[Rfam]
Rfam assigns this 161-nucleotide sequence from Sapayoa aenigma to the family "Small nucleolar RNA SNORD97".
RNA sequence: UUGCCCAAUGAUUAUAGCAAGACGCGUUAUUAUGAGGACUAAUGCUGGAACUCUCUUCUCCUCCUCUUCCUCCUCCUUUGUCCCUUCCUCUUUUACCUUACCCCCCUCACUUUCCUUAGGGUAUCCAGCGUCCUAUGAGCAAGACUGAGAUAUGAGGGCAA
Numbered sequence: 001u002u003g004c005c006c007a008a009u010g011a012u013u014a015u016a017g018c019a020a021g022a023c024g025c026g027u028u029a030u031u032a033u034g035a036g037g038a039c040u041a042a043u044g045c046u047g048g049a050a051c052u053c054u055c056u057u058c059u060c061c062u063c064c065u066c067u068u069c070c071u072c073c074u075c076c077u078u079u080g081u082c083c084c085u086u087c088c089u090c091u092u093u094u095a096c097c098u099u100a101c102c103c104c105c106c107u108c109a110c111u112u113u114c115c116u117u118a119g120g121g122u123a124u125c126c127a128g129c130g131u132c133c134u135a136u137g138a139g140c141a142a143g144a145c146u147g148a149g150a151u152a153u154g155a156g157g158g159c160a161a
Stems, first nucleotide, its partner, number of pairs: 001161006035054003040049001
Dot-bracket structure: ((((((............................(((..(........)..))).....................................................................................................))))))
Source information
A search with the family's covariance model found it, with a score of 106 bits. By type it is a C/D-box small nucleolar RNA.